[Rfam]
Record summary
The record is an 87-nucleotide RNA from Anolis carolinensis, which matches "mir-726 microRNA precursor family" in Rfam. Its family is annotated with miRNA-mediated post-transcriptional gene silencing and RISC complex in the Gene Ontology. The organism belongs to Anolis, within Eukaryota.
RNA sequence: CUGGGCGCUCGUCAGGAAUUCCGCUAGUUCUGAACUAUUUACAGUUAGAAAAAGUUCACUACUAGCAGAACUCGGCCGCGCGCUCUU
Dot-bracket structure: ..((((((.((.(.((..(((.((((((..((((((.((...........))))))))..)))))).))).)).).)).))))))..